[Rfam]
RNA: mir-9014 microRNA precursor family
RNA sequence: GGAGACAUAAGGAGGGAUUCCGAUCCAGCCUUAGGAAAAGAAACUUGCCACUGGAGUCUUGGAGAUUGGUGACACACUAAUGACUUA
Numbered sequence: 001g002g003a004g005a006c007a008u009a010a011g012g013a014g015g016g017a018u019u020c021c022g023a024u025c026c027a028g029c030c031u032u033a034g035g036a037a038a039a040g041a042a043a044c045u046u047g048c049c050a051c052u053g054g055a056g057u058c059u060u061g062g063a064g065a066u067u068g069g070u071g072a073c074a075c076a077c078u079a080a081u082g083a084c085u086u087a
Stems, first nucleotide, its partner, number of pairs: 002086003006082003010078002016073001018071001020069006029062002038060004044054002047051001